[Rfam]
Nucleotides: 096
Stems, first nucleotide, its partner, number of pairs: 001096004049058002
Number, partner (000 for none) and nucleotide at each position: 001096a002095g003094a004093c005000u006000g007000u008000g009000a010000a011000g012000a013000u014000u015000u016000a017000u018000g019000u020000g021000a022000u023000a024000a025000g026000g027000u028000c029000u030000c031000g032000u033000u034000c035000g036000u037000c038000g039000u040000a041000a042000u043000u044000g045000g046000c047000c048000u049058a050057a051000u052000c053000g054000g055000c056000c057050u058049u059000g060000c061000c062000g063000a064000c065000a066000a067000u068000c069000a070000u071000g072000c073000u074000a075000g076000a077000u078000c079000a080000c081000c082000a083000c084000c085000c086000a087000u088000a089000u090000u091000g092000a093004g094003u095002c096001u